[Rfam]
RNA sequence: CUCCAGUGACGUUGUUAAUGCCAUAGUGUCUGGGCCACUGACUUCUACUGAUGGAGAUGAGGUACUGAGGAG
Numbered sequence: 001c002u003c004c005a006g007u008g009a010c011g012u013u014g015u016u017a018a019u020g021c022c023a024u025a026g027u028g029u030c031u032g033g034g035c036c037a038c039u040g041a042c043u044u045c046u047a048c049u050g051a052u053g054g055a056g057a058u059g060a061g062g063u064a065c066u067g068a069g070g071a072g
Base pairs, nucleotide, nucleotide: 001072002071003070004069